Flavobacterium-1 RNA: a 120-nucleotide RNA.
The family's RNA type in Rfam is small RNA.
RNA sequence: GUACACCAGCGACCACAUCUUGCCUCUGGCAUUUCCCUGUUCGUUAGCGAUGAUGGGCAACCUAGCAAUGUGUGUAACACCAUGGUGCGCCGAGUUCCCUGAUCAGGAGGCGCAACGGGU
Numbered sequence: 001g002u003a004c005a006c007c008a009g010c011g012a013c014c015a016c017a018u019c020u021u022g023c024c025u026c027u028g029g030c031a032u033u034u035c036c037c038u039g040u041u042c043g044u045u046a047g048c049g050a051u052g053a054u055g056g057g058c059a060a061c062c063u064a065g066c067a068a069u070g071u072g073u074g075u076a077a078c079a080c081c082a083u084g085g086u087g088c089g090c091c092g093a094g095u096u097c098c099c100u101g102a103u104c105a106g107g108a109g110g111c112g113c114a115a116c117g118g119g120u
Stems, first nucleotide, its partner, number of pairs: 002076005007070002009044004014039002021031004047066002055062002080119002083117002086114006098107003